[Rfam]
RNA sequence: AAAGAGAAUAUAACUUCAGUUCGUAUAUGCAUGGAAAUAUGGUCCAAGUGUCUCUACCGGGAGCCUUUAAACUACCCGACUACGAACGUUAUUUUGGUGUUU
Numbered sequence: 001a002a003a004g005a006g007a008a009u010a011u012a013a014c015u016u017c018a019g020u021u022c023g024u025a026u027a028u029g030c031a032u033g034g035a036a037a038u039a040u041g042g043u044c045c046a047a048g049u050g051u052c053u054c055u056a057c058c059g060g061g062a063g064c065c066u067u068u069a070a071a072c073u074a075c076c077c078g079a080c081u082a083c084g085a086a087c088g089u090u091a092u093u094u095u096g097g098u099g100u101u102u
Stems, first nucleotide, its partner, number of pairs: 019087007029049002032046004058078004063073001
Purine riboswitch aptamer: a 102-nucleotide RNA from Clostridium intestinale. It scores 70 bits against the family's covariance model. The family's consensus secondary structure is taken from published work. The source organism's lineage runs through Bacteria, Bacillati, Bacillota, Clostridiaceae and Clostridium intestinale.